RNA sequence: AAUUAUAAUACGCUUAAUUUUCGAAUUACGUUUCGAAAAGCGGGGGAACCAGUCUAGUGGGGCGAAUCAUUCGUUAAGAAUGUAGGGUACCAUCUUACCCAAGUCCGUCAGCUAACCUCGUCAGCAGUAGAUGGGUCUGUU
Numbered sequence: 001a002a003u004u005a006u007a008a009u010a011c012g013c014u015u016a017a018u019u020u021u022c023g024a025a026u027u028a029c030g031u032u033u034c035g036a037a038a039a040g041c042g043g044g045g046g047a048a049c050c051a052g053u054c055u056a057g058u059g060g061g062g063c064g065a066a067u068c069a070u071u072c073g074u075u076a077a078g079a080a081u082g083u084a085g086g087g088u089a090c091c092a093u094c095u096u097a098c099c100c101a102a103g104u105c106c107g108u109c110a111g112c113u114a115a116c117c118u119c120g121u122c123a124g125c126a127g128u129a130g131a132u133g134g135g136u137c138u139g140u141u
Stems, first nucleotide, its partner, number of pairs: 012125003018039008040121006050059002060106003068082004085100004
RNA: c-di-AMP riboswitch aptamer (ydaO/yuaA leader)
Organism: Cohnella abietis